[Rfam]
RNA: Small nucleolar RNA SNORD2
RNA sequence: GUAUGAGAUGAUGGCAUACCAUCUUUCGGGACUGACGAAUUAUGGAGACCAUUUUUUUCUGCUGAUCAUUC
Numbered sequence: 001g002u003a004u005g006a007g008a009u010g011a012u013g014g015c016a017u018a019c020c021a022u023c024u025u026u027c028g029g030g031a032c033u034g035a036c037g038a039a040u041u042a043u044g045g046a047g048a049c050c051a052u053u054u055u056u057u058u059c060u061g062c063u064g065a066u067c068a069u070u071c
Stems, first nucleotide, its partner, number of pairs: 001071001003069004